[Rfam]
This 319-nucleotide RNA sequence from Jaculus jaculus belongs to the Rfam family "Nuclear RNase P". For this family Rfam cites "Ribonuclease P: unity and diversity in a tRNA processing ribozyme" (Frank and Pace, Annu Rev Biochem, 1998). Lineage of the source: Eukaryota > Deuterostomia > Gnathostomata > Dipodidae > Jaculus.
RNA sequence: ACCGAGAAGAGAUGAAGGGAAAUGUGGGGCCACACACUGGGUGCGUCACAUCACUCCCACUACUGUCCUUCGAGAAGGUCUGAGGCUAGGACCAGCAAGGGAAGCCCUAGCAGGAUUCUCCCUGAGUGUUGGGGAGGUGACUUCCCAGAGGGCAGAGCUCCAUGGAAAGGAAACCUGGGCAGGAGAAGCUGACGACCCCAGGGGCCUGACAGACACCUCCCUAGUCCUAGCUUAGAACAGACUCGUGGACAGCCAAGAGUGUCCAGUGGCUGAAGUGAGUGCCUUACAGGCCUCACAACCCAACUCUACCCUUCCUGGU
Numbered sequence: 001a002c003c004g005a006g007a008a009g010a011g012a013u014g015a016a017g018g019g020a021a022a023u024g025u026g027g028g029g030c031c032a033c034a035c036a037c038u039g040g041g042u043g044c045g046u047c048a049c050a051u052c053a054c055u056c057c058c059a060c061u062a063c064u065g066u067c068c069u070u071c072g073a074g075a076a077g078g079u080c081u082g083a084g085g086c087u088a089g090g091a092c093c094a095g096c097a098a099g100g101g102a103a104g105c106c107c108u109a110g111c112a113g114g115a116u117u118c119u120c121c122c123u124g125a126g127u128g129u130u131g132g133g134g135a136g137g138u139g140a141c142u143u144c145c146c147a148g149a150g151g152g153c154a155g156a157g158c159u160c161c162a163u164g165g166a167a168a169g170g171a172a173a174c175c176u177g178g179g180c181a182g183g184a185g186a187a188g189c190u191g192a193c194g195a196c197c198c199c200a201g202g203g204g205c206c207u208g209a210c211a212g213a214c215a216c217c218u219c220c221c222u223a224g225u226c227c228u229a230g231c232u233u234a235g236a237a238c239a240g241a242c243u244c245g246u247g248g249a250c251a252g253c254c255a256a257g258a259g260u261g262u263c264c265a266g267u268g269g270c271u272g273a274a275g276u277g278a279g280u281g282c283c284u285u286a287c288a289g290g291c292c293u294c295a296c297a298a299c300c301c302a303a304c305u306c307u308a309c310c311c312u313u314c315c316u317g318g319u
Base pairs, nucleotide, nucleotide: 001319002318003317004316007313008312009311013273015271026070027069028068029067039056040055041054042053043052082306083305084304090250092248093247103117104116106114107113118136119135120134121133122132123131137246138245139244140243142241143240157231158230159229275296276295277294278293279292281291282290